This 96-nucleotide RNA sequence from Dentiscutata erythropus belongs to the Rfam family "mir-36 microRNA precursor family". Its Rfam clan is "mir-36 clan". NCBI's taxonomy places the organism under Eukaryota, Opisthokonta, Fungi, Glomeromycota, Dentiscutata. Its family is annotated with RISC complex and miRNA-mediated post-transcriptional gene silencing in the Gene Ontology.

RNA sequence: AUUUUUUGUUCAUCACAGGGACGAUGAUUUUCUGCGGUGAUAUUUAUUUUAAAAAUAAAUAUCACCGCAGAAAAUCAUUGUCCCUGAAUUCAUCAU
Numbered sequence: 001a002u003u004u005u006u007u008g009u010u011c012a013u014c015a016c017a018g019g020g021a022c023g024a025u026g027a028u029u030u031u032c033u034g035c036g037g038u039g040a041u042a043u044u045u046a047u048u049u050u051a052a053a054a055a056u057a058a059a060u061a062u063c064a065c066c067g068c069a070g071a072a073a074a075u076c077a078u079u080g081u082c083c084c085u086g087a088a089u090u091c092a093u094c095a096u
Stems, first nucleotide, its partner, number of pairs: 016086007024078012037065006